[Rfam]
RNA sequence: GGUUAUGAGCGUCAGCGUCAAGCCCUGGCUUGCUGGCCGGCAACCCUCCCUCGCGGCGGGGUGCUCCAGGUGAGAACCCGGCCGUGCGAGAUCCGCACGGUAAGCGCGAUCG
Numbered sequence: 001g002g003u004u005a006u007g008a009g010c011g012u013c014a015g016c017g018u019c020a021a022g023c024c025c026u027g028g029c030u031u032g033c034u035g036g037c038c039g040g041c042a043a044c045c046c047u048c049c050c051u052c053g054c055g056g057c058g059g060g061g062u063g064c065u066c067c068a069g070g071u072g073a074g075a076a077c078c079c080g081g082c083c084g085u086g087c088g089a090g091a092u093c094c095g096c097a098c099g100g101u102a103a104g105c106g107c108g109a110u111c112g
Stems, first nucleotide, its partner, number of pairs: 001078004009038001011037006021030002039065003044061003048056002081101008

Description
The record is a 112-nucleotide RNA sequence from Gordonia humi, which matches "SAM (S-adenosyl methionine) riboswitch aptamer" in Rfam. It scores 98 bits against the family's covariance model. Lineage of the source: Bacteria > Bacillati > Mycobacteriales > Gordoniaceae > Gordonia. About the family: SAM-IV is a mRNA element that regulates gene expression via direct sensing of S-adenosylmethionine (SAM or AdoMet). On this family, see Weinberg et al., RNA 2008: "The aptamer core of SAM-IV riboswitches mimics the ligand-binding site of SAM-I riboswitches". Rfam links the family to the GO terms regulation of gene expression and S-adenosylmethionine metabolic process.